[Rfam]
RNA sequence: UAGCCGGUGGAAGUCCGGUCGAGGUAAGAGCCAAGUCGCCUCGUAGCUGGAGGGCAACUGGUGGAGAGAUCCUAAGGUUGAAGCCCCGUGACAAAGUAACUCUGCGGAGUGCGAGCAAAUCGACAGGCCGUAACAUGA
Numbered sequence: 001u002a003g004c005c006g007g008u009g010g011a012a013g014u015c016c017g018g019u020c021g022a023g024g025u026a027a028g029a030g031c032c033a034a035g036u037c038g039c040c041u042c043g044u045a046g047c048u049g050g051a052g053g054g055c056a057a058c059u060g061g062u063g064g065a066g067a068g069a070u071c072c073u074a075a076g077g078u079u080g081a082a083g084c085c086c087c088g089u090g091a092c093a094a095a096g097u098a099a100c101u102c103u104g105c106g107g108a109g110u111g112c113g114a115g116c117a118a119a120u121c122g123a124c125a126g127g128c129c130g131u132a133a134c135a136u137g138a
Stems, first nucleotide, its partner, number of pairs: 020043005050089001052087003055080005064071002096112002099110004115131002

A member of the RNA family "Group II catalytic intron D1-D4-4" from Cohnella rhizosphaerae, 138 nucleotides long. The literature on the family includes a 2001 paper in Trends Genet by Bonen and Vogel, "The ins and outs of group II introns". Rfam 15.1 lists 840 matches to the family in 506 species. NCBI's taxonomy places the organism under Bacteria, Bacillati, Bacillota, Paenibacillaceae, Cohnella. The pairing is the family consensus, mapped onto this sequence. From the family's description: Group II introns are found in rRNA, tRNA and mRNA of organelles in fungi, plants and protists, and also in mRNA in bacteria.